[Rfam]
Notes: The record is an 80-nucleotide RNA from Pomatostomus ruficeps, which matches "Small nucleolar RNA SNORD74" in Rfam. Gene Ontology terms of the family: RNA processing and nucleolus. The match comes from Rfam's covariance-model search (80 bits). The source organism's lineage runs through Eukaryota, Opisthokonta, Deuterostomia, Amniota and Pomatostomus. By type it is a C/D-box small nucleolar RNA. The family has 22 seed sequences and 929 matches in Rfam 15.1.
RNA sequence: AUGCUCUGCACAUGAUGAGAACUCUGUUGGUAGGGACAUCUGAAGAGGCUGAUGAAUGCCAACAUAUCUGAGCUGAGCAU
Number, nucleotide and partner (000 for none) at each position: 001a080002u079003g078004c077005u076006c000007u000008g000009c000010a000011c000012a000013u000014g000015a000016u000017g000018a000019g000020a000021a000022c000023u000024c000025u000026g000027u000028u000029g000030g000031u000032a000033g000034g000035g000036a000037c000038a000039u000040c000041u000042g000043a000044a000045g000046a000047g000048g000049c000050u000051g000052a000053u000054g000055a000056a000057u000058g000059c000060c000061a000062a000063c000064a000065u000066a000067u000068c000069u000070g000071a000072g000073c000074u000075g000076a005077g004078c003079a002080u001